Annotation
The record is a 55-nucleotide sequence from Drosera regia, which matches "Plastid-psbA-3 3UTR RNA" in Rfam. For this family Rfam cites "Retrograde signaling in plants: A critical review focusing on the GUN pathway and beyond" (Richter et al., Plant Commun, 2023).
RNA sequence: GGAGCAAUAACCAAUUUCUUGUUCUAUCAAGAGGUCCGGUAUUGCUCCCUUCGUU
Number, nucleotide and partner (000 for none) at each position: 001g048002g047003a046004g045005c044006a043007a042008u041009a040010a000011c038012c000013a000014a000015u000016u033017u032018c031019u030020u029021g028022u000023u000024c000025u000026a000027u000028c021029a020030a019031g018032a017033g016034g000035u000036c000037c000038g011039g000040u009041a008042u007043u006044g005045c004046u003047c002048c001049c000050u000051u000052c000053g000054u000055u000
Overview:
It is annotated as a cis-regulatory element. Its Rfam clan is "Plastid-psbA 3UTR RNA clan". The sequence is in the family's curated seed alignment. From the family's description: Plastid psbA-3 is a non-coding RNA (ncRNA) present in plastids.